Rfam assigns this 212-nucleotide RNA sequence from Paenibacillus lutimineralis to the family "c-di-AMP riboswitch aptamer (ydaO/yuaA leader)". The pairing is the family consensus, mapped onto this sequence. The source organism's lineage runs through Bacteria, Bacillati, Bacillota, Bacilli and Paenibacillus.
[Rfam]
RNA sequence: AUAUUCAAUGAGCCGAAACUUACUAGAACAAGUGCGGGGGACGAUUUAACGAAAGGCUGAUUUGGAAUUGAGUCAUGACAAAUUGGCUAUCUUGGGGUGAAGCGUGGUUGAAAUAGUAACAAAAAUUUAACUAUUGUUACUAUUCUUGCGUAGGGAAACUUCCUUUUCCCGAAUCCGACAACUAACUCCGCAGGCGCAUAAAAGGAGGACAA
Number, nucleotide and partner (000 for none) at each position: 001a000002u000003a000004u000005u000006c000007a000008a000009u000010g000011a000012g195013c194014c193015g000016a000017a000018a033019c032020u031021u000022a000023c000024u000025a000026g000027a000028a000029c000030a000031a020032g019033u018034g191035c190036g189037g188038g187039g186040g000041a000042c094043g093044a000045u000046u000047u000048a000049a000050c000051g000052a000053a000054a000055g000056g000057c000058u000059g000060a000061u000062u000063u000064g000065g000066a000067a000068u000069u000070g000071a000072g000073u000074c000075a000076u000077g000078a000079c000080a000081a000082a000083u000084u000085g000086g000087c000088u000089a000090u000091c000092u000093u043094g042095g176096g175097g174098u000099g000100a000101a000102g000103c150104g149105u148106g147107g000108u000109u000110g000111a000112a000113a000114u000115a000116g000117u000118a000119a000120c000121a000122a000123a000124a000125a000126u000127u000128u000129a000130a000131c000132u000133a000134u000135u000136g000137u000138u000139a000140c000141u000142a000143u000144u000145c000146u000147u106148g105149c104150g103151u000152a000153g170154g169155g168156a167157a000158a000159c000160u000161u000162c000163c000164u000165u000166u000167u156168c155169c154170c153171g000172a000173a000174u097175c096176c095177g000178a000179c000180a000181a000182c000183u000184a000185a000186c039187u038188c037189c036190g035191c034192a000193g014194g013195c012196g000197c000198a000199u000200a000201a000202a000203a000204g000205g000206a000207g000208g000209a000210c000211a000212a000